[Rfam]
RNA sequence: CCAAAGGCUCUUUUAAGAGCCAUCCACGUUUUCAAUAAAAGGGCUG
Numbered sequence: 001c002c003a004a005a006g007g008c009u010c011u012u013u014u015a016a017g018a019g020c021c022a023u024c025c026a027c028g029u030u031u032u033c034a035a036u037a038a039a040a041g042g043g044c045u046g
Stems, first nucleotide, its partner, number of pairs: 006021006
Dot-bracket structure: .....((((((....)))))).........................